[Rfam]
The family of this 94-nucleotide sequence from Dendrobium nobile is "MIR1888 microRNA precursor family".
The family's consensus secondary structure was predicted with RNAalifold.
NCBI's taxonomy places the organism under Eukaryota, Tracheophyta, Mesangiospermae, Asparagales, Dendrobium.
Gene Ontology terms of the family: miRNA-mediated post-transcriptional gene silencing and RISC complex.

RNA sequence: ACGGCUUUUUUACUGCUUUCUAAAACGGAGUUUUAGUACAAAAUUUUUUAUUUUUGUACUAAAACUCCGUUUUAGAAAGCAGUAAAAAAGCCGU
Number, nucleotide and partner (000 for none) at each position: 001a094002c093003g092004g091005c090006u089007u088008u000009u087010u085011u084012a083013c082014u081015g080016c079017u078018u077019u076020c075021u074022a073023a072024a071025a070026c069027g068028g067029a066030g065031u064032u063033u062034u000035a000036g059037u058038a057039c056040a055041a054042a053043a000044u000045u000046u000047u000048u000049u000050a000051u000052u000053u042054u041055u040056g039057u038058a037059c036060u000061a000062a033063a032064a031065c030066u029067c028068c027069g026070u025071u024072u023073u022074a021075g020076a019077a018078a017079g016080c015081a014082g013083u012084a011085a010086a000087a009088a007089a006090g005091c004092c003093g002094u001